[Rfam]
RNA: MIR531 microRNA precursor family
RNA sequence: CCGAGCUUUGCUCGCCGGAGCUGCGUGCGGCCAUGGCCAGCACGCAGCUCCGUCGAGCAUCGCUCGUCG
Numbered sequence: 001c002c003g004a005g006c007u008u009u010g011c012u013c014g015c016c017g018g019a020g021c022u023g024c025g026u027g028c029g030g031c032c033a034u035g036g037c038c039a040g041c042a043c044g045c046a047g048c049u050c051c052g053u054c055g056a057g058c059a060u061c062g063c064u065c066g067u068c069g
Base pairs, nucleotide, nucleotide: 002066003065004064005063006062009059010058011057012056013055014054016052017051018050019049020048022046023045024044025043026042027041028040030037031036